RNA sequence: AAAAAGGGUCCGUUGGCUAAAUAUGCCACGCCCGCCCUAGUUAGGUGGAUGCUAUAUGGCUAUCAAGACAUAUGGCCGACAUAAUUUGUCGAACUCAAAUAGGAUUGGCUUGCUUUGGCCGACCCUCC
Numbered sequence: 001a002a003a004a005a006g007g008g009u010c011c012g013u014u015g016g017c018u019a020a021a022u023a024u025g026c027c028a029c030g031c032c033c034g035c036c037c038u039a040g041u042u043a044g045g046u047g048g049a050u051g052c053u054a055u056a057u058g059g060c061u062a063u064c065a066a067g068a069c070a071u072a073u074g075g076c077c078g079a080c081a082u083a084a085u086u087u088g089u090c091g092a093a094c095u096c097a098a099a100u101a102g103g104a105u106u107g108g109c110u111u112g113c114u115u116u117g118g119c120c121g122a123c124c125c126u127c128c
Base pairs, nucleotide, nucleotide: 008080009079010078012076014028015027016026017025029051030050032048033047034046035045036044052075053074054073055072056071057070058069101126102125103124105122106121107120108119111118
RNA: U11 spliceosomal RNA